[Rfam]
RNA: U1 spliceosomal RNA
Organism: Salvelinus namaycush
RNA sequence: CCACUAAGCAGAAGAGAUACCGUGAUCAAGAAGGUGGUUCACCCAGUGUGGGGCUCAGCCAUUGCACUCUGGCUGUGCUGACCCCUUGCGAAUUUUCCAAAUGUGGGAAUCUCGAUUGCAUAAUUUAUGGUAGUGGCUCGUUUGCGCUUUACCCU
Numbered sequence: 001c002c003a004c005u006a007a008g009c010a011g012a013a014g015a016g017a018u019a020c021c022g023u024g025a026u027c028a029a030g031a032a033g034g035u036g037g038u039u040c041a042c043c044c045a046g047u048g049u050g051g052g053g054c055u056c057a058g059c060c061a062u063u064g065c066a067c068u069c070u071g072g073c074u075g076u077g078c079u080g081a082c083c084c085c086u087u088g089c090g091a092a093u094u095u096u097c098c099a100a101a102u103g104u105g106g107g108a109a110u111c112u113c114g115a116u117u118g119c120a121u122a123a124u125u126u127a128u129g130g131u132a133g134u135g136g137c138u139c140g141u142u143u144g145c146g147c148u149u150u151a152c153c154c155u
Stems, first nucleotide, its partner, number of pairs: 008119004014042001016040002019038005045087001046085001048083001050082001052079003056075005089114003092110003096106002135154002139146002